[Rfam]
RNA: c-di-AMP riboswitch aptamer (ydaO/yuaA leader)
Nucleotides: 170
Base pairs, nucleotide, nucleotide: 012150013149014148015147016146017145022054023053055135056134057133063108064107065106066105111129112128113127114126
Number, partner (000 for none) and nucleotide at each position: 001000c002000g003000a004000u005000a006000c007000g008000g009000a010000c011000c012150g013149c014148c015147g016146g017145g018000g019000a020000a021000c022054c023053g024000u025000c026000g027000c028000g029000g030000a031000g032000c033000c034000g035000g036000g037000g038000a039000c040000c041000c042000a043000c044000c045000c046000g047000c048000a049000g050000c051000a052000c053023c054022g055135g056134g057133g058000u059000g060000a061000a062000u063108c064107a065106c066105c067000g068000c069000g070000c071000c072000c073000g074000a075000c076000c077000g078000g079000a080000u081000c082000g083000c084000a085000c086000c087000c088000g089000c090000g091000a092000c093000c094000c095000g096000c097000g098000a099000a100000g101000g102000c103000a104000a105066g106065g107064u108063g109000u110000a111129g112128g113127g114126c115000g116000a117000a118000c119000a120000c121000u122000u123000c124000c125000c126114g127113c128112c129111c130000g131000a132000a133057c134056c135055c136000g137000u138000c139000a140000g141000c142000u143000a144000a145017c146016c147015c148014g149013g150012u151000a152000g153000g154000c155000g156000c157000c158000a159000c160000c161000g162000g163000a164000a165000g166000a167000g168000g169000a170000a